Rfam assigns this 95-nucleotide sequence from Legionella massiliensis to the family "RAGATH-13 RNA". Gene Ontology term of the family: catalytic activity. The match comes from Rfam's covariance-model search (85 bits).
RNA sequence: AUUGCUUUGCCCCCUUCUUCGAGCAUUACGGCUUUGCCGGGUUUCAUCCUUUGAAAUGAACCGCUCGACCAACACUAAACUCAAACAGGGCAAAU
Numbered sequence: 001a002u003u004g005c006u007u008u009g010c011c012c013c014c015u016u017c018u019u020c021g022a023g024c025a026u027u028a029c030g031g032c033u034u035u036g037c038c039g040g041g042u043u044u045c046a047u048c049c050u051u052u053g054a055a056a057u058g059a060a061c062c063g064c065u066c067g068a069c070c071a072a073c074a075c076u077a078a079a080c081u082c083a084a085a086c087a088g089g090g091c092a093a094a095u
Stems, first nucleotide, its partner, number of pairs: 006094007019068006029039004040062003044059002